[Rfam]
The family of this 88-nucleotide sequence is "RAGATH-35 RNA". It is one of the family's seed sequences. It is annotated as a small RNA.
RNA sequence: AUAUAGCAGGUGGCAUGGCUUCGGUGUGACGGAAUCGCCUGUUAUUAACUCAUCAACGGUUUUCAUUUCCCUUAUCCGUUUGAGUGAU
Number, nucleotide and partner (000 for none) at each position: 001a000002u000003a000004u000005a043006g042007c041008a040009g039010g038011u037012g000013g027014c026015a025016u024017g000018g000019c000020u000021u000022c000023g000024g016025u015026g014027u013028g000029a000030c000031g000032g000033a000034a000035u000036c000037g011038c010039c009040u008041g007042u006043u005044a000045u000046u000047a000048a000049c000050u000051c000052a000053u000054c000055a000056a000057c000058g000059g000060u000061u000062u000063u000064c000065a000066u000067u000068u000069c000070c000071c000072u000073u000074a000075u000076c000077c000078g000079u000080u000081u000082g000083a000084g000085u000086g000087a000088u000